[Rfam]
RNA sequence: CGGUGAGGUAGAGGUUGCAAUUAUUAAUAGUAUGAUUUGGAAGAUGUGUGGCAUCGCUGAACAAAUCAGAAAGGAAUAGUUGCCGAAGCAAGAAGCACCCACAGCGCUUUCUUGCUGGGACUGCAUUGAAUAAGUGCAGGACUGUCACAGGCUUUUUGCUUGUGGAGAGCUAUCGAGAGG
Number, nucleotide and partner (000 for none) at each position: 001c000002g000003g000004u000005g000006a000007g174008g173009u172010a171011g170012a000013g000014g000015u000016u000017g083018c082019a081020a080021u079022u078023a077024u076025u075026a000027a000028u000029a000030g000031u000032a000033u068034g067035a066036u065037u064038u063039g062040g000041a000042a000043g000044a000045u000046g000047u000048g000049u000050g000051g000052c000053a000054u000055c000056g000057c000058u000059g000060a000061a000062c039063a038064a037065a036066u035067c034068a033069g000070a000071a000072a000073g000074g000075a025076a024077u023078a022079g021080u020081u019082g018083c017084c000085g000086a000087a116088g115089c114090a113091a112092g111093a110094a108095g107096c106097a000098c000099c000100c000101a000102c000103a000104g000105c000106g096107c095108u094109u000110u093111c092112u091113u090114g089115c088116u087117g143118g142119g000120a000121c139122u138123g137124c136125a135126u134127u133128g000129a000130a000131u000132a000133a127134g126135u125136g124137c123138a122139g121140g000141a000142c118143u117144g000145u165146c164147a163148c162149a161150g160151g159152c000153u000154u000155u000156u000157u000158g000159c151160u150161u149162g148163u147164g146165g145166a000167g000168a000169g000170c011171u010172a009173u008174c007175g000176a000177g000178a000179g000180g000
RNA: Lysine riboswitch aptamer
Organism: Bacillus sp. AFS018417